[Rfam]
RNA sequence: UGCAAUAUAUUCGAUAUAGAACACUCAUAUCGCUAAAAGAAUUUGAACUAUUU
Numbered sequence: 001u002g003c004a005a006u007a008u009a010u011u012c013g014a015u016a017u018a019g020a021a022c023a024c025u026c027a028u029a030u031c032g033c034u035a036a037a038a039g040a041a042u043u044u045g046a047a048c049u050a051u052u053u
Stems, first nucleotide, its partner, number of pairs: 012032006
The record is a 53-nucleotide RNA from Kingdonia uniflora, which matches "Plastid-atpF group II-D1 intron" in Rfam.
The base pairs follow the family's consensus structure, which was predicted with LocARNA.
It scores 55 bits against the family's covariance model.
The literature on the family includes a 2023 paper in Plant Commun by Richter et al., "Retrograde signaling in plants: A critical review focusing on the GUN pathway and beyond".
Rfam's curators write: Plastid atpF is a non-coding RNA (ncRNA) recognised in plastids. It has been reported in the intron group II-D1 region of ATP synthase (atpF) genes.
Gene Ontology term of the family: Group II intron splicing.
The family has 49 seed sequences and 1,372 matches in Rfam 15.1.